[Rfam]
RNA sequence: GAGUGAAAUGAUGAUCAAUUAUUUCCCUAUUCGUUUGACAACCGCAAUGAUGGUACCUUAUUGCUUCAAACUUGCCGAUCACUC
Numbered sequence: 001g002a003g004u005g006a007a008a009u010g011a012u013g014a015u016c017a018a019u020u021a022u023u024u025c026c027c028u029a030u031u032c033g034u035u036u037g038a039c040a041a042c043c044g045c046a047a048u049g050a051u052g053g054u055a056c057c058u059u060a061u062u063g064c065u066u067c068a069a070a071c072u073u074g075c076c077g078a079u080c081a082c083u084c
Stems, first nucleotide, its partner, number of pairs: 002083004037057001041054003
Dot-bracket structure: .((((...............................(...(((........)))..)......................)))).
RNA: Small nucleolar RNA Z102/R77
Organism: Physcomitrium patens